The family of this 184-nucleotide sequence from Channa argus is "Small nucleolar RNA SNORA81". The organism belongs to Channa, within Eukaryota. The family's RNA type in Rfam is H/ACA-box small nucleolar RNA.
RNA sequence: ACCUUCUCUUUUAAGCAUCCUGCUAAAACUGCAGCAGCCAAGCCUCACAGGUUUAGCUUAUGUGGUCAUGUAAGCAUGGGUACACCAGGGAAGGAGAUUAAAAGCACAGUAUCGGAAAUGAGGCUUGGAGGGACCUCUUUCUUAAUGUCCAGUGUCCUUUGUCUCAAGAUUCUGUGUUACAAGC
Dot-bracket structure: .................((.((((...(..(.....((.(((((.....))))).))........)..)...))))..))......................(((((((.(................(..(((..............)))..)................).)))))))......